Shown here is a 109-nucleotide RNA sequence from Streptomyces collinus, a member of the family "Streptomyces RNA 4115". It is one of the family's seed sequences. By type it is a small RNA. A reference for the family is Vockenhuber et al. (2011), "Deep sequencing-based identification of small non-coding RNAs in Streptomyces coelicolor", RNA Biol. The organism belongs to Streptomyces collinus, within Bacteria. The base pairs follow the family's consensus structure.

[Rfam]
RNA sequence: GCGUGGGUCGGCCCGCUGUACUGGAUCCAGCGGGCUGGGGGACACCGCCACCUACAUCCCCGCGGGUGGCGGACCGGUCCGGGAGGCGAUGCCCGCCUCCCGGACUGUG
Numbered sequence: 001g002c003g004u005g006g007g008u009c010g011g012c013c014c015g016c017u018g019u020a021c022u023g024g025a026u027c028c029a030g031c032g033g034g035c036u037g038g039g040g041g042a043c044a045c046c047g048c049c050a051c052c053u054a055c056a057u058c059c060c061c062g063c064g065g066g067u068g069g070c071g072g073a074c075c076g077g078u079c080c081g082g083g084a085g086g087c088g089a090u091g092c093c094c095g096c097c098u099c100c101c102g103g104a105c106u107g108u109g
Stems, first nucleotide, its partner, number of pairs: 001108002006075003009037010038043001045072009055062001076106013